[Rfam]
RNA sequence: GGCUGUCGUCUUACCUGAACACUAUUAGAGUGUCAUAUGAAAUAUCUAAUACUGUCAGGUAAUGACGAUUGCC
Numbered sequence: 001g002g003c004u005g006u007c008g009u010c011u012u013a014c015c016u017g018a019a020c021a022c023u024a025u026u027a028g029a030g031u032g033u034c035a036u037a038u039g040a041a042a043u044a045u046c047u048a049a050u051a052c053u054g055u056c057a058g059g060u061a062a063u064g065a066c067g068a069u070u071g072c073c
Base pairs, nucleotide, nucleotide: 001073002072003071005069006068007067008066009065010064011062012061013060014059015058016057017056020054021053023051024050025049026048027047028046029045
RNA: mir-236 microRNA precursor family
Organism: Brugia malayi